[Rfam]
RNA sequence: CCACUUGGUGAUGAUUAGAUCCUCGCCUACAUGCUGGCCGGUCUUGGUUCUGAAUUCGAACCUCUCGUGGCCUCCAUCACCGCUCGCGAGGAGCCGAUCAGCCUCGGUAACUUCUACGCGUUCCUCGUCAGCGCCGAGC
Numbered sequence: 001c002c003a004c005u006u007g008g009u010g011a012u013g014a015u016u017a018g019a020u021c022c023u024c025g026c027c028u029a030c031a032u033g034c035u036g037g038c039c040g041g042u043c044u045u046g047g048u049u050c051u052g053a054a055u056u057c058g059a060a061c062c063u064c065u066c067g068u069g070g071c072c073u074c075c076a077u078c079a080c081c082g083c084u085c086g087c088g089a090g091g092a093g094c095c096g097a098u099c100a101g102c103c104u105c106g107g108u109a110a111c112u113u114c115u116a117c118g119c120g121u122u123c124c125u126c127g128u129c130a131g132c133g134c135c136g137a138g139c
Base pairs, nucleotide, nucleotide: 004138005137006136007135008134088108091105092104093103
RNA: Small nucleolar RNA Z247